[Rfam]
RNA sequence: ACGCUGCCGUACCGCGAGAUCUCCAGCCGCUCGCCUUCCUGACGUCACUUCCCCGGCGCCAGGUGGGUAGAGCGGAUGGGGAUCUGACGGUACGGCAACGUGUCG
Dot-bracket structure: .........(((((...((.(((((.((((((((((.((((.(((..........))).)))).)))).)))))).))))).))...))))).............

The family of this 105-nucleotide RNA sequence from Rugosimonospora africana is "mraW RNA". Pairs were carried over by alignment from the consensus structure, which is taken from published work. The source organism's lineage runs through Bacteria, Actinomycetota, Actinomycetes, Micromonosporaceae and Rugosimonospora.